[Rfam]
RNA sequence: AAGGAUAUAGUUUAAUGGUAAAACUAUUGAUUUCAAAUCAAUCAUUAAGAGUUCGAAUCUUUUUAUCCUUG
Numbered sequence: 001a002a003g004g005a006u007a008u009a010g011u012u013u014a015a016u017g018g019u020a021a022a023a024c025u026a027u028u029g030a031u032u033u034c035a036a037a038u039c040a041a042u043c044a045u046u047a048a049g050a051g052u053u054c055g056a057a058u059c060u061u062u063u064u065a066u067c068c069u070u071g
Stems, first nucleotide, its partner, number of pairs: 001070007010024004026042005047063005
Shown here is a 71-nucleotide sequence from Nakaseomyces glabratus, a member of the family "tRNA". Gene Ontology term of the family: triplet codon-amino acid adaptor activity. The family's RNA type in Rfam is transfer RNA.